[Rfam]
The record is an 85-nucleotide RNA from Zapornia atra, which matches "mir-1781 microRNA precursor family" in Rfam.
RNA sequence: CCAGGAGCUUGUUUAACAGCUGAGUAAUUUAAAGCCAUCUGAUUUCUUUAGCUUUAAACCAUGCAGCUGUUGAAGAAGCUCUUGC
Number, nucleotide and partner (000 for none) at each position: 001c000002c084003a083004g082005g081006a080007g079008c078009u077010u076011g000012u074013u073014u072015a071016a070017c069018a068019g067020c066021u065022g064023a000024g062025u061026a000027a000028u058029u057030u056031a055032a054033a053034g052035c051036c000037a000038u000039c000040u000041g000042a000043u000044u000045u000046c000047u000048u000049u000050a000051g035052c034053u033054u032055u031056a030057a029058a028059c000060c000061a025062u024063g000064c022065a021066g020067c019068u018069g017070u016071u015072g014073a013074a012075g000076a010077a009078g008079c007080u006081c005082u004083u003084g002085c000
Lineage of the source: Eukaryota > Euteleostomi > Archosauria > Neoaves > Zapornia.